[Rfam]
RNA: Glycine riboswitch aptamer
Organism: Pontibacillus chungwhensis
RNA sequence: CUCUGGAGAGUGCCUGCGUAGGGCCACCCAAGAAGAAAGCAGCAAAAAAACUGCGAAACUUUCUGGUUAACGGACAGGG
Numbered sequence: 001c002u003c004u005g006g007a008g009a010g011u012g013c014c015u016g017c018g019u020a021g022g023g024c025c026a027c028c029c030a031a032g033a034a035g036a037a038a039g040c041a042g043c044a045a046a047a048a049a050a051c052u053g054c055g056a057a058a059c060u061u062u063c064u065g066g067u068u069a070a071c072g073g074a075c076a077g078g079g
Base pairs, nucleotide, nucleotide: 001079002078003077004076005075012024013023014022015021026067027066028065030062033061034060035059039054040053041052042051